[Rfam]
RNA sequence: GUGCCUUAAACUAAUGAGUAAGGAAAAUAUAAAGCUUUGGUAACGCUUAGCUAUGCUGAAUUAAGCGAACUAAUUUUUGAAGAGGCACAGGUCGUCCCAGGGCUGUGUGAACUACUUUUUCACGCGGCUAGGAGAGCGAUCUUACCUC
Dot-bracket structure: ...(((((..........))))).........((((..(......)..)))).((((......))))..............((((...(((((((..(..(((((.(((((.......))))).)))))..)...)))))))..))))
Shown here is a 148-nucleotide RNA sequence from Trachymyrmex cornetzi, a member of the family "U12 minor spliceosomal RNA".
The literature on the family includes a 1997 paper in Trends Biochem Sci by Tarn and Steitz, "Pre-mRNA splicing: the discovery of a new spliceosome doubles the challenge".
Rfam 15.1 lists 2,106 matches to the family in 1,170 species.
NCBI's taxonomy places the organism under Eukaryota, Ecdysozoa, Pterygota, Neoptera, Trachymyrmex.
A search with the family's covariance model found it, with a score of 105 bits.
The base pairs follow the family's consensus structure.